Background
The record is a 115-nucleotide RNA sequence from Carboxydocella thermautotrophica, which matches "TPP riboswitch aptamer (THI element)" in Rfam. Taxonomically the source falls in Carboxydocella thermautotrophica (Bacteria, Bacillati, Clostridia, Carboxydocella). From the family's description: Vitamin B(1) in its active form thiamin pyrophosphate (TPP) is an essential coenzyme that is synthesised by coupling of pyrimidine and thiazole moieties in bacteria.
[Rfam]
RNA sequence: GAUACUACCUGGGGGUGCUCGUUGAGCCGGGCUGAGAAGGACGGGCGAUGAACCGUUCUAACCCUUUGAACCUGAGACGGAUAAUACCGGCGGAGGGAAGGUAGGUGAAAAGAUC
Numbered sequence: 001g002a003u004a005c006u007a008c009c010u011g012g013g014g015g016u017g018c019u020c021g022u023u024g025a026g027c028c029g030g031g032c033u034g035a036g037a038a039g040g041a042c043g044g045g046c047g048a049u050g051a052a053c054c055g056u057u058c059u060a061a062c063c064c065u066u067u068g069a070a071c072c073u074g075a076g077a078c079g080g081a082u083a084a085u086a087c088c089g090g091c092g093g094a095g096g097g098a099a100g101g102u103a104g105g106u107g108a109a110a111a112g113a114u115c
Base pairs, nucleotide, nucleotide: 006103007102008101009100010099011065012064013063014062017032018031019030020029021028039058040057041056042055043054071096072095073094078089079088080087
Dot-bracket structure: .....(((((((((..(((((......)))))......(((((..........)))))...)))).....(((....(((......)))....)))..)))))............